[Rfam]
Nucleotides: 120
Stems, first nucleotide, its partner, number of pairs: 002119002009112003014094002022089008071107002073103005
Number, partner (000 for none) and nucleotide at each position: 001000g002119g003118c004000g005000a006000c007000g008000a009112g010111g011110g012000a013000a014094g015093u016000g017000u018000u019000g020000a021000u022089c023088c024087g025086g026085g027084c028083c029082g030000c031000c032000c033000c034000c035000a036000c037000c038000g039000a040000c041000c042000c043000c044000u045000c046000c047000u048000c049000g050000g051000a052000g053000g054000g055000g056000g057000c058000a059000c060000g061000g062000a063000g064000a065000a066000a067000g068000a069000u070000c071107g072106g073103u074102c075101g076100c077099c078000g079000a080000g081000g082029u083028g084027g085026c086025c087024c088023g089022g090000g091000g092000a093015g094014c095000g096000a097000g098000u099077g100076g101075c102074g103073a104000g105000a106072c107071c108000g109000a110011c111010c112009c113000g114000a115000c116000c117000a118003g119002c120000a
Rfam assigns this 120-nucleotide sequence to the family "c-di-GMP-II-GAG riboswitch aptamer". Pairs were carried over by alignment from the consensus structure, which is taken from published work.